This 79-nucleotide sequence from Candidatus Electrothrix aarhusensis belongs to the Rfam family "c-di-GMP-I riboswitch aptamer". The organism belongs to Candidatus Electrothrix, within Bacteria. It scores 47 bits against the family's covariance model. Gene Ontology term of the family: cyclic-di-GMP binding. Pairs were carried over by alignment from the consensus structure, which is taken from published work.
[Rfam]
RNA sequence: UUAGAAAAAUGCCACAGCCGUCGUGAGGCGGUGUCGGAAAGUUGCGGGUCUUUUUGUUGAAGAUAGCCGGACCGCCUGU
Numbered sequence: 001u002u003a004g005a006a007a008a009a010u011g012c013c014a015c016a017g018c019c020g021u022c023g024u025g026a027g028g029c030g031g032u033g034u035c036g037g038a039a040a041g042u043u044g045c046g047g048g049u050c051u052u053u054u055u056g057u058u059g060a061a062g063a064u065a066g067c068c069g070g071a072c073c074g075c076c077u078g079u
Stems, first nucleotide, its partner, number of pairs: 012037002017032006041072003045069003048064006